Rfam assigns this 103-nucleotide sequence from Nelumbo nucifera to the family "Small nucleolar RNA Z107/R87". NCBI's taxonomy places the organism under Eukaryota, Euphyllophyta, Mesangiospermae, Nelumbonaceae, Nelumbo. The match comes from Rfam's covariance-model search (91 bits). The family's consensus secondary structure was predicted with RNAfold. By type it is a C/D-box small nucleolar RNA.
RNA sequence: GAUUGCAGUGACGACUCGGAAAAUUCAAGCUCAACAGACCGGAAUGCAGGUUUCUCCUCUUGGGGGAAUUUGCGUGUCGACGACCCCGCUGAACUGAGCAAUC
Numbered sequence: 001g002a003u004u005g006c007a008g009u010g011a012c013g014a015c016u017c018g019g020a021a022a023a024u025u026c027a028a029g030c031u032c033a034a035c036a037g038a039c040c041g042g043a044a045u046g047c048a049g050g051u052u053u054c055u056c057c058u059c060u061u062g063g064g065g066g067a068a069u070u071u072g073c074g075u076g077u078c079g080a081c082g083a084c085c086c087c088g089c090u091g092a093a094c095u096g097a098g099c100a101a102u103c
Base pairs, nucleotide, nucleotide: 001103002102003101004100005099006098